[Rfam]
RNA sequence: GCGGAGGGCCGGAUGGCCGCGGCAUCAGCAAUGGCGCCGAGGAAAGUCCGGACUCCACAAGACAACGGUGCCGGGUAAUGCCCGGCCGGGGUAACCCGAGGGAAAGCGCCACAGAGAACAGACUUCCCCUGCGCGACAGGGGUAAAGGUGAAACGGUGGGGUAAGAGCCCACCGCGGGGCUGGCAACAGCACCGGCACGGCAAGCCCCACCGGGAGCAAUGCCAAAUAGGGAUCGCACAUGGGCUGUCUUGGCCUCGCAGAUCCGGGUUGGCAGCUUGAGGCGUGUUGGCAACAGCGCGUCCAGAUGAAUGGUCAUCCAGCUUCGGGCCACGGCCCGGGGUGGACAGAAUCCGGCUUACAGGCCCUCCGCGCAU
Numbered sequence: 001g002c003g004g005a006g007g008g009c010c011g012g013a014u015g016g017c018c019g020c021g022g023c024a025u026c027a028g029c030a031a032u033g034g035c036g037c038c039g040a041g042g043a044a045a046g047u048c049c050g051g052a053c054u055c056c057a058c059a060a061g062a063c064a065a066c067g068g069u070g071c072c073g074g075g076u077a078a079u080g081c082c083c084g085g086c087c088g089g090g091g092u093a094a095c096c097c098g099a100g101g102g103a104a105a106g107c108g109c110c111a112c113a114g115a116g117a118a119c120a121g122a123c124u125u126c127c128c129c130u131g132c133g134c135g136a137c138a139g140g141g142g143u144a145a146a147g148g149u150g151a152a153a154c155g156g157u158g159g160g161g162u163a164a165g166a167g168c169c170c171a172c173c174g175c176g177g178g179g180c181u182g183g184c185a186a187c188a189g190c191a192c193c194g195g196c197a198c199g200g201c202a203a204g205c206c207c208c209a210c211c212g213g214g215a216g217c218a219a220u221g222c223c224a225a226a227u228a229g230g231g232a233u234c235g236c237a238c239a240u241g242g243g244c245u246g247u248c249u250u251g252g253c254c255u256c257g258c259a260g261a262u263c264c265g266g267g268u269u270g271g272c273a274g275c276u277u278g279a280g281g282c283g284u285g286u287u288g289g290c291a292a293c294a295g296c297g298c299g300u301c302c303a304g305a306u307g308a309a310u311g312g313u314c315a316u317c318c319a320g321c322u323u324c325g326g327g328c329c330a331c332g333g334c335c336c337g338g339g340g341u342g343g344a345c346a347g348a349a350u351c352c353g354g355c356u357u358a359c360a361g362g363c364c365c366u367c368c369g370c371g372c373a374u
Stems, first nucleotide, its partner, number of pairs: 001370010011359001012317007020039004025034003044357003048354005053216004061250002064247001066212005071085005086100001087098004101207002106205002108201003123147002126142006155173006174196001175194003179190004220273004230264005241255005281300008
Bacterial RNase P class A: a 374-nucleotide RNA from Roseovarius faecimaris. It is annotated as a ribozyme. Ribonuclease P (RNase P) is a ubiquitous endoribonuclease, found in archaea, bacteria and eukarya as well as chloroplasts and mitochondria. Its best characterised activity is the generation of mature 5'-ends of tRNAs by cleaving the 5'-leader elements of precursor-tRNAs. Cellular RNase Ps are ribonucleoproteins. RNA from bacterial RNase Ps retains its catalytic activity in the absence of the protein subunit, i.e. it is a ribozyme. Isolated eukaryotic and archaeal RNase P RNA has not been shown to retain its catalytic function, but is still essential for the catalytic activity of the holoenzyme. Although the archaeal and eukaryotic holoenzyme s have a much greater protein content than the bacterial ones, the RNA cores from all the three lineages are homologous -- helices corresponding to P1, P2, P3, P4, and P10/11 are common to all cellular RNase P RNAs. Yet, there is considerable sequence variation, particularly among the eukaryotic RNAs. Identified in Yersinia as Ysr151/RnpB. Lineage of the source: Bacteria > Pseudomonadota > Alphaproteobacteria > Roseobacteraceae > Roseovarius. The base pairs follow the family's consensus structure, which is taken from published work.